[Rfam]
RNA: GP20-b RNA
RNA sequence: AGACCGGAAUGUCGUAAAACUAUCAGCGCAUGGGAGGCAACCCCGUAUAAAAGCGUA
Numbered sequence: 001a002g003a004c005c006g007g008a009a010u011g012u013c014g015u016a017a018a019a020c021u022a023u024c025a026g027c028g029c030a031u032g033g034g035a036g037g038c039a040a041c042c043c044c045g046u047a048u049a050a051a052a053g054c055g056u057a
Stems, first nucleotide, its partner, number of pairs: 002013003007024002009021001031045004